[Rfam]
RNA sequence: AGAGGUUGAUGCCAUAGCAGAAGCGCUCACAGCACAGCCAUGUCAGAUUCCAACAAAUCUGUGAAUUCUGCU
Numbered sequence: 001a002g003a004g005g006u007u008g009a010u011g012c013c014a015u016a017g018c019a020g021a022a023g024c025g026c027u028c029a030c031a032g033c034a035c036a037g038c039c040a041u042g043u044c045a046g047a048u049u050c051c052a053a054c055a056a057a058u059c060u061g062u063g064a065a066u067u068c069u070g071c072u
Stems, first nucleotide, its partner, number of pairs: 011038002016072007023035001025033001044061006
Dot-bracket structure: ..........[[...((((((((.(.......).).]].....((((((......))))))....)))))))
Rfam assigns this 72-nucleotide RNA sequence from Crocodylus porosus to the family "Mammalian CPEB3 ribozyme". Pairs were carried over by alignment from the consensus structure, which is taken from published work. The match comes from Rfam's covariance-model search (48 bits). Rfam's curators write: The mammalian CPEB3 ribozyme is a self cleaving RNA located in the second intron of the CPEB3 gene which belongs to a family of genes regulating messenger RNA polyadenylation.